[Rfam]
RNA sequence: ACAGGUGUUAGCUCGGCACUCUCUGUGGACACACGUGUUUACCAUACAUCCAGGGGGGAAGGUCUGAGGAACCAGCGGGGGCUGAAAAGCCGGCCGUAACACAUACGGAAAACGCCCAACAGAAAACAGCUACGCAUGAAAGUGGCGUUGUGGUCAGGGCUCUGCCUAAAGUCAAAUUGCCGAGGCUCUUGUAACUCAAUUCAGACUACUCAAUGCCUGU
Numbered sequence: 001a002c003a004g005g006u007g008u009u010a011g012c013u014c015g016g017c018a019c020u021c022u023c024u025g026u027g028g029a030c031a032c033a034c035g036u037g038u039u040u041a042c043c044a045u046a047c048a049u050c051c052a053g054g055g056g057g058g059a060a061g062g063u064c065u066g067a068g069g070a071a072c073c074a075g076c077g078g079g080g081g082c083u084g085a086a087a088a089g090c091c092g093g094c095c096g097u098a099a100c101a102c103a104u105a106c107g108g109a110a111a112a113c114g115c116c117c118a119a120c121a122g123a124a125a126a127c128a129g130c131u132a133c134g135c136a137u138g139a140a141a142g143u144g145g146c147g148u149u150g151u152g153g154u155c156a157g158g159g160c161u162c163u164g165c166c167u168a169a170a171g172u173c174a175a176a177u178u179g180c181c182g183a184g185g186c187u188c189u190u191g192u193a194a195c196u197c198a199a200u201u202c203a204g205a206c207u208a209c210u211c212a213a214u215g216c217c218u219g220u
Stems, first nucleotide, its partner, number of pairs: 001220004007214003012184007021055005064204005071154003080091004094108005111149006129135002185192002
Dot-bracket structure: ((((..(((..(((((((..(((((.........................)))))........[[[[[..(((......((((....))))..(((((.....)))))..((((((............((...))........))))))..))).......................)))))))((....)).......]]]]].......)))..))))
Shown here is a 220-nucleotide RNA from Babesia ovata, a member of the family "Nuclear RNase P". It scores 67 bits against the family's covariance model. About the family: Ribonuclease P (RNase P) is a ubiquitous endoribonuclease, found in archaea, bacteria and eukarya as well as chloroplasts and mitochondria. Its best characterised activity is the generation of mature 5'-ends of tRNAs by cleaving the 5'-leader elements of precursor-tRNAs. Cellular RNase Ps are ribonucleoproteins. RNA from bacterial RNase Ps retains its catalytic activity in the absence of the protein subunit, i.e. it is a ribozyme. Isolated eukaryotic and archaeal RNase P RNA has not been shown to retain its catalytic function, but is still essential for the catalytic activity of the holoenzyme. Although the archaeal and eukaryotic holoenzyme s have a much greater protein content than the bacterial ones, the RNA cores from all the three lineages are homologous -- helices corresponding to P1, P2, P3, P4, and P10/11 are common to all cellular RNase P RNAs. Yet, there is considerable sequence variation, particularly among the eukaryotic RNAs. Pairs were carried over by alignment from the consensus structure, which is taken from published work. The family is grouped with related families in Rfam's "RNaseP clan". By type it is a ribozyme. Taxonomically the source falls in Babesia (Eukaryota, Alveolata, Apicomplexa, Babesiidae).